[Rfam]
RNA sequence: GCAGUCUGCCGGUCUGUCGCUCAUUACCUGGUAAUGGGAGGAAAGUCCGGGCAACACAGAGCACCAUAUUUCCUAACGGGAAGCUGUCCGCGAGGGCAGAGUAGCGUAACAGAAAAUAACCGUUCCGCCUGGCGGAAUAAGGGUGAAAAGGUGAGGUAAGAGCUCACCGGGUCUCGUAGCAAUACGGGAUGCCGUACGCCUUAUGGGUUGUAAGGUCAUGUAUACCGGCGCAUGUAGGAUAGCUCGUCCGAUGCCGGGGGGUAGACCGCUAGAUCGUACCGGUGACGGUAAGGCAAGAUAAAUGGCAGACACUUUCGCCCUCGGGCGGAAGAACAGAACCCGGCUUACAGGCAGACUGCAUUU
Numbered sequence: 001g002c003a004g005u006c007u008g009c010c011g012g013u014c015u016g017u018c019g020c021u022c023a024u025u026a027c028c029u030g031g032u033a034a035u036g037g038g039a040g041g042a043a044a045g046u047c048c049g050g051g052c053a054a055c056a057c058a059g060a061g062c063a064c065c066a067u068a069u070u071u072c073c074u075a076a077c078g079g080g081a082a083g084c085u086g087u088c089c090g091c092g093a094g095g096g097c098a099g100a101g102u103a104g105c106g107u108a109a110c111a112g113a114a115a116a117u118a119a120c121c122g123u124u125c126c127g128c129c130u131g132g133c134g135g136a137a138u139a140a141g142g143g144u145g146a147a148a149a150g151g152u153g154a155g156g157u158a159a160g161a162g163c164u165c166a167c168c169g170g171g172u173c174u175c176g177u178a179g180c181a182a183u184a185c186g187g188g189a190u191g192c193c194g195u196a197c198g199c200c201u202u203a204u205g206g207g208u209u210g211u212a213a214g215g216u217c218a219u220g221u222a223u224a225c226c227g228g229c230g231c232a233u234g235u236a237g238g239a240u241a242g243c244u245c246g247u248c249c250g251a252u253g254c255c256g257g258g259g260g261g262u263a264g265a266c267c268g269c270u271a272g273a274u275c276g277u278a279c280c281g282g283u284g285a286c287g288g289u290a291a292g293g294c295a296a297g298a299u300a301a302a303u304g305g306c307a308g309a310c311a312c313u314u315u316c317g318c319c320c321u322c323g324g325g326c327g328g329a330a331g332a333a334c335a336g337a338a339c340c341c342g343g344c345u346u347a348c349a350g351g352c353a354g355a356c357u358g359c360a361u362u363u
Stems, first nucleotide, its partner, number of pairs: 001359010011348001012310007020038008043346003047343005052210004059245004064206005069083005084099001086097004100201002104199005120142002122138007150168006170192001171190008214267004225257005237249004274293002277290005
RNA: Bacterial RNase P class A